[Rfam]
RNA sequence: UUCUAGCCCUGAUGGAAGCGACAUCCUUUUAACGCUUCCCAAGCGUUAAAAGAUAAAGCGUACAGCAGGACCAAAA
Number, nucleotide and partner (000 for none) at each position: 001u000002u000003c000004u000005a000006g000007c000008c000009c068010u067011g066012a000013u064014g063015g000016a000017a000018g059019c058020g000021a000022c000023a054024u053025c052026c000027u000028u000029u049030u048031a047032a046033c045034g044035c043036u042037u000038c000039c000040c000041a000042a036043g035044c034045g033046u032047u031048a030049a029050a000051a000052g025053a024054u023055a000056a000057a000058g019059c018060g000061u000062a000063c014064a013065g000066c011067a010068g009069g000070a000071c000072c000073a000074a000075a000076a000